Annotation
The family of this 64-nucleotide RNA sequence from Lentibacillus sp. CBA3610 is "DUF3800-VIII RNA". The base pairs follow the family's consensus structure, which is taken from published work. About the family: Bacteroidetes, Cyanobacteria, Firmicutes, Planctomycetes (1 example), Proteobacteria, Tenericutes (1 example). It scores 56 bits against the family's covariance model. Lineage of the source: Bacteria > Bacillati > Bacillota > Bacilli > Lentibacillus. The family's RNA type in Rfam is small RNA.
[Rfam]
RNA sequence: UGAGCUUGUUUUUCUCGAAGGCCUACGUGCCACGUGGGCUACUGAGUAGAGGAAAGGGGGCUCA
Numbered sequence: 001u002g003a004g005c006u007u008g009u010u011u012u013u014c015u016c017g018a019a020g021g022c023c024u025a026c027g028u029g030c031c032a033c034g035u036g037g038g039c040u041a042c043u044g045a046g047u048a049g050a051g052g053a054a055a056g057g058g059g060g061c062u063c064a
Stems, first nucleotide, its partner, number of pairs: 001064007009056008020040009